[Rfam]
RNA sequence: GCAUUGGUUUAGCUCAGUGGUUACUUCUUCAAAAUCUUUCAGAUUAUGUGAUUCUAUCCAUAACUGGGAUCAAACCUCAGGCCCUGUCCAGUGUUUUC
Number, nucleotide and partner (000 for none) at each position: 001g000002c093003a092004u091005u090006g089007g088008u000009u000010u000011a000012g082013c081014u080015c000016a000017g078018u000019g076020g075021u000022u000023a000024c000025u074026u073027c000028u000029u000030c000031a000032a000033a000034a000035u000036c000037u000038u000039u000040c000041a000042g000043a000044u000045u000046a000047u000048g000049u000050g000051a000052u000053u000054c000055u000056a000057u000058c000059c000060a000061u000062a000063a000064c000065u000066g000067g000068g000069a000070u000071c000072a000073a026074a025075c020076c019077u000078c017079a000080g014081g013082c012083c000084c000085u000086g000087u000088c007089c006090a005091g004092u003093g002094u000095u000096u000097u000098c000